[Rfam]
RNA sequence: AGCCUUCCACAGGGGUGCUCCGUAUUGCCGGGGCUGAGAUGAUGGCGCGACGCCAUCGGACCCUAAAGCUGAUCUGGGUAAUGCCAGCGGAGCGAGGUGACGAUGUUUUCCG
Numbered sequence: 001a002g003c004c005u006u007c008c009a010c011a012g013g014g015g016u017g018c019u020c021c022g023u024a025u026u027g028c029c030g031g032g033g034c035u036g037a038g039a040u041g042a043u044g045g046c047g048c049g050a051c052g053c054c055a056u057c058g059g060a061c062c063c064u065a066a067a068g069c070u071g072a073u074c075u076g077g078g079u080a081a082u083g084c085c086a087g088c089g090g091a092g093c094g095a096g097g098u099g100a101c102g103a104u105g106u107u108u109u110c111c112g
Base pairs, nucleotide, nucleotide: 006100007099010096011064012063013062014061016058017034018033019032020031021030041057042056043055044054045053046052047051068093069092070091074087075086076085077084
A member of the RNA family "TPP riboswitch aptamer (THI element)" from Microvirga brassicacearum, 112 nucleotides long.
Lineage of the source: Bacteria > Pseudomonadati > Hyphomicrobiales > Methylobacteriaceae > Microvirga.
A search with the family's covariance model found it, with a score of 60 bits.
Rfam's curators write: Vitamin B(1) in its active form thiamin pyrophosphate (TPP) is an essential coenzyme that is synthesised by coupling of pyrimidine and thiazole moieties in bacteria. The previously detected thiamin-regulatory element, thi box was extended, resulting in a new, highly conserved RNA secondary structure, the THI element, which is widely distributed in eubacteria and also occurs in some archaea.